RNA sequence: AACGUUGAGCUCGGUCGACCUUUCGCGUCGACCCGCAAGCCGGAAGUAGCCCAUCCGCAAGGCGAAGCAACGCUCC
Numbered sequence: 001a002a003c004g005u006u007g008a009g010c011u012c013g014g015u016c017g018a019c020c021u022u023u024c025g026c027g028u029c030g031a032c033c034c035g036c037a038a039g040c041c042g043g044a045a046g047u048a049g050c051c052c053a054u055c056c057g058c059a060a061g062g063c064g065a066a067g068c069a070a071c072g073c074u075c076c
Base pairs, nucleotide, nucleotide: 003072004071005070006069007068009040010039011038043073049063050062051061
RNA: Glutamine riboswitch aptamer (glnA leader)
Organism: Synechococcus sp. RS9916